[Rfam]
RNA sequence: CGGCUUAGCUGAAUUAGUGAUCGGCAAGCCUUUAUUUAUUAGGAGAAAGAAAUGUCACUAAGUAAAGCAGAAACUGCACAAAUCAUCGCUGAUUAUGCGAUUAAAGAA
Numbered sequence: 001c002g003g004c005u006u007a008g009c010u011g012a013a014u015u016a017g018u019g020a021u022c023g024g025c026a027a028g029c030c031u032u033u034a035u036u037u038a039u040u041a042g043g044a045g046a047a048a049g050a051a052a053u054g055u056c057a058c059u060a061a062g063u064a065a066a067g068c069a070g071a072a073a074c075u076g077c078a079c080a081a082a083u084c085a086u087c088g089c090u091g092a093u094u095a096u097g098c099g100a101u102u103a104a105a106g107a108a
Stems, first nucleotide, its partner, number of pairs: 008025005039062002042059002045056001
RNA: Ribosomal S15 leader
Organism: Alteromonadaceae bacterium M269